[Rfam]
RNA sequence: CUACGGACUUAAAAAGUUGAGCCUUGUUGAAGAAAUUCUACAAGUGGAUGCUCUCAAAUUCAGGGAAACCUAAAUUUUACGUUUAAAUAUUACGUAAGAUAUGGCAAUCCUGAGCCAAGCCGAAUUAACUUUAAUAGUUCGGAAGGUGCAGAGACUCGACGGGAGCGACCCUAACGUAAUUGCAAGCAAUUGUUUAAUUAUUUGUAAAGUCGAGGGUAAAGGGAGAGUCCAAUUCUUAAAACCUAAUG
Numbered sequence: 001c002u003a004c005g006g007a008c009u010u011a012a013a014a015a016g017u018u019g020a021g022c023c024u025u026g027u028u029g030a031a032g033a034a035a036u037u038c039u040a041c042a043a044g045u046g047g048a049u050g051c052u053c054u055c056a057a058a059u060u061c062a063g064g065g066a067a068a069c070c071u072a073a074a075u076u077u078u079a080c081g082u083u084u085a086a087a088u089a090u091u092a093c094g095u096a097a098g099a100u101a102u103g104g105c106a107a108u109c110c111u112g113a114g115c116c117a118a119g120c121c122g123a124a125u126u127a128a129c130u131u132u133a134a135u136a137g138u139u140c141g142g143a144a145g146g147u148g149c150a151g152a153g154a155c156u157c158g159a160c161g162g163g164a165g166c167g168a169c170c171c172u173a174a175c176g177u178a179a180u181u182g183c184a185a186g187c188a189a190u191u192g193u194u195u196a197a198u199u200a201u202u203u204g205u206a207a208a209g210u211c212g213a214g215g216g217u218a219a220a221g222g223g224a225g226a227g228u229c230c231a232a233u234u235c236u237u238a239a240a241a242c243c244u245a246a247u248g
Stems, first nucleotide, its partner, number of pairs: 005024002008021005029038002049167005055161001060113006069104002073100001114147002120141001122140002128135001151230001153229005169216004177208001236246003

Group I catalytic intron: a 248-nucleotide sequence from Plectonema radiosum. Taxonomically the source falls in Plectonema radiosum (Bacteria, Bacillati, Cyanophyceae, Oscillatoriales). Rfam 15.1 lists 5,602 matches to the family in 1,395 species. The base pairs follow the family's consensus structure, which is taken from published work.